[Rfam]
RNA sequence: CUACCGUCGCCGCGAGACGACGGAACGAAUUGUGAGAAGUCAGCCGAGGGCAUAGUAGAUCCAAUCGACCAGGAUUAAAGGCC
Numbered sequence: 001c002u003a004c005c006g007u008c009g010c011c012g013c014g015a016g017a018c019g020a021c022g023g024a025a026c027g028a029a030u031u032g033u034g035a036g037a038a039g040u041c042a043g044c045c046g047a048g049g050g051c052a053u054a055g056u057a058g059a060u061c062c063a064a065u066c067g068a069c070c071a072g073g074a075u076u077a078a079a080g081g082c083c
Stems, first nucleotide, its partner, number of pairs: 001027001004023006011016001040047002049083003058076005